Shown here is a 139-nucleotide RNA from Marchantia polymorpha, a member of the family "U4 spliceosomal RNA".
RNA sequence: AUAUUUGCGCUUGGGGCAAUGACGCAGUUAGUGAGAUGAAACGAGACAAGUCAAUUGCUGGUUGAAAACUAUUUCCAAACUAGCCUCACAUGUAUAUAGUUGACUUAAGAUGUACAUUAGGUGGAUUAGCUGCGCAGCU
Numbered sequence: 001a002u003a004u005u006u007g008c009g010c011u012u013g014g015g016g017c018a019a020u021g022a023c024g025c026a027g028u029u030a031g032u033g034a035g036a037u038g039a040a041a042c043g044a045g046a047c048a049a050g051u052c053a054a055u056u057g058c059u060g061g062u063u064g065a066a067a068a069c070u071a072u073u074u075c076c077a078a079a080c081u082a083g084c085c086u087c088a089c090a091u092g093u094a095u096a097u098a099g100u101u102g103a104c105u106u107a108a109g110a111u112g113u114a115c116a117u118u119a120g121g122u123g124g125a126u127u128a129g130c131u132g133c134g135c136a137g138c139u
Stems, first nucleotide, its partner, number of pairs: 021052003027047003035042001085121002090117008128139004
Annotation:
Lineage of the source: Eukaryota > Viridiplantae > Streptophytina > Marchantiales > Marchantia polymorpha. The match comes from Rfam's covariance-model search (58 bits). U4 small nuclear RNA (U4 snRNA) is a component of the major U2-dependent spliceosome. Its Rfam clan is "U4 clan". Rfam classes the family as a spliceosomal small nuclear RNA.